[Rfam]
RNA sequence: GUUAUCGUGGUUCGAAAUCCUCCCACGCAAAAAAACUAAGGAAAC
Numbered sequence: 001g002u003u004a005u006c007g008u009g010g011u012u013c014g015a016a017a018u019c020c021u022c023c024c025a026c027g028c029a030a031a032a033a034a035a036c037u038a039a040g041g042a043a044a045c
Base pairs, nucleotide, nucleotide: 006027007026008025009024010023016037
PreQ1 (pre queuosine) riboswitch aptamer: a 45-nucleotide sequence from Mesocricetibacter intestinalis. The literature on the family includes a 2009 paper in Mol Cell by Kang et al., "Structural Insights into riboswitch control of the biosynthesis of queuosine, a modified nucleotide found in the anticodon of tRNA". It scores 54 bits against the family's covariance model. The source organism's lineage runs through Bacteria, Pseudomonadati, Pseudomonadota, Pasteurellaceae and Mesocricetibacter. The pairing is the family consensus, mapped onto this sequence. From the family's description: This family is a bacterial riboswitch that binds to the metabolite preQ1, an intermediate in the biosynthesis of the modified nucleoside queuosine from GTP. One example of this riboswitch is located in the leader of the Bacillus subtilis ykvJKLM (queCDEF) operon which encodes four genes necessary for queuosine production. PreQ1 binding to the riboswitch aptamer is thought to induce premature transcription termination within the leader to down-regulate expression of these genes.